[Rfam]
RNA sequence: UACACGCUUGUGAAGACUACACAGUAAACCUUUACUGGGCUUGUGGAUGUCUGAUGUUCUGUGUA
Dot-bracket structure: (((((.........((((.(((((.....(((....))).))))).).))).........)))))
Source information
Shown here is a 65-nucleotide RNA sequence from Xenopus tropicalis, a member of the family "Selenocysteine insertion sequence 1". A search with the family's covariance model found it, with a score of 37 bits. The base pairs follow the family's consensus structure, which is taken from published work. Gene Ontology term of the family: selenocysteine incorporation. Rfam 15.1 lists 3,793 matches to the family in 721 species. The source organism's lineage runs through Eukaryota, Craniata, Vertebrata, Tetrapoda and Silurana.